[Rfam]
RNA sequence: AUUGACAAGUGAUGAUAAACAUAUGCAAUACUGAAGAAAUUUAUCGUGUUGAUAAAACUCCGCUUAUUAUCUGAUGUCAGG
Numbered sequence: 001a002u003u004g005a006c007a008a009g010u011g012a013u014g015a016u017a018a019a020c021a022u023a024u025g026c027a028a029u030a031c032u033g034a035a036g037a038a039a040u041u042u043a044u045c046g047u048g049u050u051g052a053u054a055a056a057a058c059u060c061c062g063c064u065u066a067u068u069a070u071c072u073g074a075u076g077u078c079a080g081g
Stems, first nucleotide, its partner, number of pairs: 003079005

Small nucleolar RNA R16: an 81-nucleotide sequence from Zostera marina. Rfam 15.1 lists 884 matches to the family in 222 species. For this family Rfam cites "Purified box C/D snoRNPs are able to reproduce site-specific 2'-O-methylation of target RNA in vitro" (Galardi et al., Mol Cell Biol, 2002). The source organism's lineage runs through Eukaryota, Streptophytina, Embryophyta, Spermatophyta and Zostera.